The record is a 72-nucleotide RNA sequence from Theileria equi, which matches "tRNA" in Rfam. Its Rfam clan is "tRNA clan". Taxonomically the source falls in Theileria equi (Eukaryota, Alveolata, Piroplasmida, Theileriidae). About the family: Transfer RNA (tRNA) molecules are approximately 80 nucleotides in length. Their secondary structure includes four short double-helical elements and three loops (D, anti-codon, and T loops). Further hydrogen bonds mediate the characteristic L-shaped molecular structure. tRNAs have two regions of fundamental functional importance: the anti-codon, which is responsible for specific mRNA codon recognition, and the 3' end, to which the tRNAs corresponding amino acid is attached (by aminoacyl-tRNA synthetases). tRNAs cope with the degeneracy of the genetic code in two manners: having more than one tRNA (with a specific anti-codon) for a particular amino acid; and 'wobble' base-pairing, i.e. permitting non-standard base-pairing at the 3rd anti-codon position.
[Rfam]
RNA sequence: GGGCUUGUGGCGCAAUGGUAGCGCGUCCGACUCCAGAUCGGAAGGUUGGGGGUUCAAGUCCCUUCGGGCUCA
Numbered sequence: 001g002g003g004c005u006u007g008u009g010g011c012g013c014a015a016u017g018g019u020a021g022c023g024c025g026u027c028c029g030a031c032u033c034c035a036g037a038u039c040g041g042a043a044g045g046u047u048g049g050g051g052g053u054u055c056a057a058g059u060c061c062c063u064u065c066g067g068g069c070u071c072a
Base pairs, nucleotide, nucleotide: 001071002070003069004068005067006066007065010024011023012022013021026042027041028040029039030038048064049063050062051061052060
Dot-bracket structure: (((((((..((((.......)))).(((((.......))))).....(((((.......)))))))))))).